[Rfam]
RNA: Early nodulin 40
Organism: Coptis chinensis
RNA sequence: AUGGAAUCCUUUUGGCAAGAAUCUAUCCAUGGGUCUUGAAAAGCAUGGUGUUUGGAACGAGGGAUUUUGCACCCUCACUCCAAACCAAUCAGUUUGUCCAUGCUUAGCUUUUGGUUCUGCUUAUACUUUUUAAGCUUAGCUUUAGGCUAAUGCAUGGUGAACCGGCAAGUCACAUAACGGCAAUUAGGACUCAGUCAUGGGUCUU
Number, nucleotide and partner (000 for none) at each position: 001a000002u000003g000004g000005a000006a000007u000008c000009c000010u000011u000012u000013u000014g000015g000016c000017a000018a000019g000020a000021a000022u000023c000024u000025a000026u000027c000028c000029a000030u000031g000032g000033g000034u000035c000036u000037u000038g000039a000040a000041a000042a000043g000044c000045a000046u000047g000048g000049u000050g000051u000052u000053u000054g081055g080056a079057a000058c000059g000060a000061g000062g000063g000064a000065u000066u000067u000068u000069g000070c000071a000072c000073c000074c000075u000076c000077a000078c000079u056080c055081c054082a000083a000084a000085c000086c000087a000088a000089u000090c000091a000092g162093u161094u160095u159096g158097u157098c000099c000100a000101u000102g000103c000104u000105u000106a000107g000108c000109u152110u000111u150112u000113g000114g000115u000116u000117c000118u000119g000120c000121u000122u000123a000124u000125a000126c000127u000128u000129u000130u000131u000132a000133a000134g000135c000136u000137u000138a000139g000140c000141u000142u000143u000144a000145g000146g000147c000148u000149a000150a111151u000152g109153c000154a000155u000156g000157g097158u096159g095160a094161a093162c092163c000164g000165g000166c000167a000168a000169g000170u000171c000172a000173c000174a000175u000176a000177a000178c000179g000180g000181c000182a000183a000184u000185u000186a000187g000188g203189a202190c201191u200192c199193a000194g000195u000196c000197a000198u000199g192200g191201g190202u189203c188204u000205u000